[Rfam]
RNA sequence: CUUCCGAAAUUUCCCUCAGGAUAGCUGCAACUUAUGAAAUAGUUUUAUGAGGUAAAGCGAAUGAUUAGAGGCUUCGGGAAUGUACUAUUCUUGACCUAUUCUCAAACUUUAAAUGGGUAAGAAGCAGUUGAUGUUUAGUUAAUCAGCUGUGAUGAAUAUGAGUUGCAAGUGGGCCAUUCCGGGUAAGCUGGACUGGCGAUGCGGGAUCAACCGAACGCUAUGGUACGGCGCCUGAUUAUUCGCUCAGUAGGACGUAAAAGGUGUUAGUUCAUCUAGACAGCAGGACGGUGGCCAUGGAAGUCGGAAUCCGCUAAGGAGUGUGUAACAACUCACCUGCCGAAUGUACUAGCCCUGAAAAUGGAUGGCGCUCAAGCGUCUCACCCAUACCUCGCCCUCAGGGUAGAAACGAAGCCCUGAGGAGUAGGCGGACGUGGAGGUCAGUGACGAAGCCUAGGGCGUGAGCCCGGGUUGAACGGCCUCUAGUGCAGAU
Numbered sequence: 001c002u003u004c005c006g007a008a009a010u011u012u013c014c015c016u017c018a019g020g021a022u023a024g025c026u027g028c029a030a031c032u033u034a035u036g037a038a039a040u041a042g043u044u045u046u047a048u049g050a051g052g053u054a055a056a057g058c059g060a061a062u063g064a065u066u067a068g069a070g071g072c073u074u075c076g077g078g079a080a081u082g083u084a085c086u087a088u089u090c091u092u093g094a095c096c097u098a099u100u101c102u103c104a105a106a107c108u109u110u111a112a113a114u115g116g117g118u119a120a121g122a123a124g125c126a127g128u129u130g131a132u133g134u135u136u137a138g139u140u141a142a143u144c145a146g147c148u149g150u151g152a153u154g155a156a157u158a159u160g161a162g163u164u165g166c167a168a169g170u171g172g173g174c175c176a177u178u179c180c181g182g183g184u185a186a187g188c189u190g191g192a193c194u195g196g197c198g199a200u201g202c203g204g205g206a207u208c209a210a211c212c213g214a215a216c217g218c219u220a221u222g223g224u225a226c227g228g229c230g231c232c233u234g235a236u237u238a239u240u241c242g243c244u245c246a247g248u249a250g251g252a253c254g255u256a257a258a259a260g261g262u263g264u265u266a267g268u269u270c271a272u273c274u275a276g277a278c279a280g281c282a283g284g285a286c287g288g289u290g291g292c293c294a295u296g297g298a299a300g301u302c303g304g305a306a307u308c309c310g311c312u313a314a315g316g317a318g319u320g321u322g323u324a325a326c327a328a329c330u331c332a333c334c335u336g337c338c339g340a341a342u343g344u345a346c347u348a349g350c351c352c353u354g355a356a357a358a359u360g361g362a363u364g365g366c367g368c369u370c371a372a373g374c375g376u377c378u379c380a381c382c383c384a385u386a387c388c389u390c391g392c393c394c395u396c397a398g399g400g401u402a403g404a405a406a407c408g409a410a411g412c413c414c415u416g417a418g419g420a421g422u423a424g425g426c427g428g429a430c431g432u433g434g435a436g437g438u439c440a441g442u443g444a445c446g447a448a449g450c451c452u453a454g455g456g457c458g459u460g461a462g463c464c465c466g467g468g469u470u471g472a473a474c475g476g477c478c479u480c481u482a483g484u485g486c487a488g489a490u
Base pairs, nucleotide, nucleotide: 001428002427004425005424010023012021013020014019026167027166028165029164030163031162032161043122044121045120046119047118048117055110056108057107062104063103064102067099069097070096071095074094075093076092077091078090079089081087124150125149126148127147128146129145130144131143132142173197174196175195176194178192179191180190181189182188202213203212204211217392218391220389227382228381238378241375242374243373259353260352261351263350264349265348266347267346268345270343271342272341280337281336282335283334284333286310287309288308292304293303311315316331320329321328393419394418395417396416397415398414399413400412401411430485432482433481434480435479436478437477438476439475441474442473449469450468455464456463457462
Rfam assigns this 490-nucleotide part of an RNA from Blastocystis hominis to the family "Eukaryotic large subunit ribosomal RNA". It scores 3034 bits against the family's covariance model. Pairs were carried over by alignment from the consensus structure, which is taken from published work. Taxonomically the source falls in Blastocystis hominis (Eukaryota, Stramenopiles, Opalozoa, Opalinata). The family is grouped with related families in Rfam's "LSU clan".